[Rfam]
RNA sequence: UCAAAUUAUUCGGGGUGCCUUACUUUACAGGCUGAGAUUACACCCAUUGAACCUGAUGCAGGUAAUGCUGUCGCAGGGAUAUGAAUGACUCUCUAU
Numbered sequence: 001u002c003a004a005a006u007u008a009u010u011c012g013g014g015g016u017g018c019c020u021u022a023c024u025u026u027a028c029a030g031g032c033u034g035a036g037a038u039u040a041c042a043c044c045c046a047u048u049g050a051a052c053c054u055g056a057u058g059c060a061g062g063u064a065a066u067g068c069u070g071u072c073g074c075a076g077g078g079a080u081a082u083g084a085a086u087g088a089c090u091c092u093c094u095a096u
Stems, first nucleotide, its partner, number of pairs: 006084004012045003016040001017032004052077004058071004
A member of the RNA family "TPP riboswitch aptamer (THI element)" from Carboxylicivirga sediminis, 96 nucleotides long.
The organism belongs to Carboxylicivirga, within Bacteria.
The match comes from Rfam's covariance-model search (69 bits).